[Rfam]
RNA sequence: ACAUGGGAAAGGAGGUGGUCCGAGACAUGAAGUCUUCCCGGACGCGUGAGGUGGCUGCCCGCUAGCCGCCCGAGCACAUCGGACGGACUGCUCGAUCCGGACGUGCGCCCUGCCGGUCCGACCGGCACGGCGGCGGGCGAAUCCCCGCAGUCACCGCAGCCCGUGGGAGCCGCGACCUCGUCCCUCGCGGCAGGGCCCCUCUCGAGGGACCCGGCCCACGGGCUGUUCCCU
Numbered sequence: 001a002c003a004u005g006g007g008a009a010a011g012g013a014g015g016u017g018g019u020c021c022g023a024g025a026c027a028u029g030a031a032g033u034c035u036u037c038c039c040g041g042a043c044g045c046g047u048g049a050g051g052u053g054g055c056u057g058c059c060c061g062c063u064a065g066c067c068g069c070c071c072g073a074g075c076a077c078a079u080c081g082g083a084c085g086g087a088c089u090g091c092u093c094g095a096u097c098c099g100g101a102c103g104u105g106c107g108c109c110c111u112g113c114c115g116g117u118c119c120g121a122c123c124g125g126c127a128c129g130g131c132g133g134c135g136g137g138c139g140a141a142u143c144c145c146c147g148c149a150g151u152c153a154c155c156g157c158a159g160c161c162c163g164u165g166g167g168a169g170c171c172g173c174g175a176c177c178u179c180g181u182c183c184c185u186c187g188c189g190g191c192a193g194g195g196c197c198c199c200u201c202u203c204g205a206g207g208g209a210c211c212c213g214g215c216c217c218a219c220g221g222g223c224u225g226u227u228c229c230c231u
Base pairs, nucleotide, nucleotide: 014059015058016057017056018055019054060139061138062137063136065134066133068131069130070129157225158224159223160222161221162220163219164218165217166216167215170190171189172188173187174186175185
RNA: Actinobacteria sRNA Ms_IGR-5